[Rfam]
RNA sequence: AUGUUUGAUAGAGGCGCGGUGAUAAGAGUAUCCGUCUGGCAAUAGUCAAGGGAAGACUGUCAGUAGGAGAAAGGAGAAGCCGCCGAAGGAAUGAUAUUUCCCUGAUAUGAUUCCUGGGCCGGAUGCAGAAUAUGCUCCGGACUGUCACAGGUGUGGAGAGCUAUCGAGGAU
Numbered sequence: 001a002u003g004u005u006u007g008a009u010a011g012a013g014g015c016g017c018g019g020u021g022a023u024a025a026g027a028g029u030a031u032c033c034g035u036c037u038g039g040c041a042a043u044a045g046u047c048a049a050g051g052g053a054a055g056a057c058u059g060u061c062a063g064u065a066g067g068a069g070a071a072a073g074g075a076g077a078a079g080c081c082g083c084c085g086a087a088g089g090a091a092u093g094a095u096a097u098u099u100c101c102c103u104g105a106u107a108u109g110a111u112u113c114c115u116g117g118g119c120c121g122g123a124u125g126c127a128g129a130a131u132a133u134g135c136u137c138c139g140g141a142c143u144g145u146c147a148c149a150g151g152u153g154u155g156g157a158g159a160g161c162u163a164u165c166g167a168g169g170a171u
Stems, first nucleotide, its partner, number of pairs: 006166006016083005023075001031068003036063003087115006094108005116143002119140004125135003145156004
RNA: Lysine riboswitch aptamer